[Rfam]
RNA: Manganese Mn2+ riboswitch aptamer (yybP-ykoY)
RNA sequence: CAUUUAGUUAAAAGGGAGUAACUGCCUUGAAAAAGGUGAUAAAGUCAACAUACUGACCUUGGGUCUGGCUUUAUCGUAACUAUUAGUGGUUAAGUGAGACUUUUAGCACAGUGGUAUAUUGUGCUGAGAGUCUUUAUUUAUU
Number, nucleotide and partner (000 for none) at each position: 001c000002a000003u000004u000005u000006a000007g000008u000009u000010a000011a000012a000013a000014g000015g000016g000017a000018g000019u000020a000021a000022c000023u000024g000025c036026c035027u034028u000029g000030a000031a000032a000033a000034a027035g026036g025037u000038g075039a074040u073041a072042a071043a070044g069045u068046c067047a066048a000049c000050a000051u000052a000053c000054u000055g065056a064057c063058c062059u000060u000061g000062g058063g057064u056065c055066u047067g046068g045069c044070u043071u042072u041073a040074u039075c038076g141077u140078a139079a138080c000081u136082a135083u000084u000085a000086g000087u000088g000089g000090u000091u000092a000093a000094g000095u000096g000097a000098g000099a000100c000101u000102u000103u000104u000105a000106g000107c000108a000109c000110a000111g000112u000113g000114g000115u000116a000117u000118a000119u000120u000121g000122u000123g000124c000125u000126g000127a000128g000129a000130g000131u000132c000133u000134u000135u082136a081137u000138u079139u078140a077141u076142u000